[Rfam]
RNA sequence: AAAAAUUGGUAAUGAUGACCUGGUUGGACUAGAGUCUCUGAGCUUUACUAUGAGGAGCUUUGAAACCACCUGAUCUGUUCA
Numbered sequence: 001a002a003a004a005a006u007u008g009g010u011a012a013u014g015a016u017g018a019c020c021u022g023g024u025u026g027g028a029c030u031a032g033a034g035u036c037u038c039u040g041a042g043c044u045u046u047a048c049u050a051u052g053a054g055g056a057g058c059u060u061u062g063a064a065a066c067c068a069c070c071u072g073a074u075c076u077g078u079u080c081a
Stems, first nucleotide, its partner, number of pairs: 004079003008076002018074001020072001022070003026066001031059002035055004041049002
RNA: Small nucleolar RNA ZL8
Organism: Otolemur garnettii